About this RNA
The record is a 115-nucleotide RNA sequence from Gorilla gorilla, which matches "snaR-A sRNA" in Rfam. About the family: Small NF90/ILF3-associated RNAs (snaR) are ~120 nucleotides long and are known to interact with NF90 double-stranded RNA-binding motifs. snaR-A is abundant in human testis and has been shown to associate with ribosomes in HeLa cells. snaR-A is present in human and gorilla but not in chimpanzee. Other snaR RNAs are found in African Great Apes (including chimpanzee and bonobo). The base pairs follow the family's consensus structure. The source organism's lineage runs through Eukaryota, Metazoa, Craniata, Hominidae and Gorilla gorilla. It scores 104 bits against the family's covariance model. The literature on the family includes a 2007 paper in Nucleic Acids Res by Parrott and Mathews, "Novel rapidly evolving hominid RNAs bind nuclear factor 90 and display tissue-restricted distribution".
RNA sequence: CCGGAGUCAUUGUGGCUCCGGCCGGUUGCGCCUGCCCUCGGGCCCUCAGGGAGGCGGGGGCUCGAGAGAGCGAGUUCGAGGCCAGCCUGGUCCACAUUGGUCGAAACAAAAAUUU
Dot-bracket structure: ...((.(.((.((((.((.(((.((((.((..(.(.((.((((((((........)))))))).)).).)......)).)))).))).)).)))))).).)).............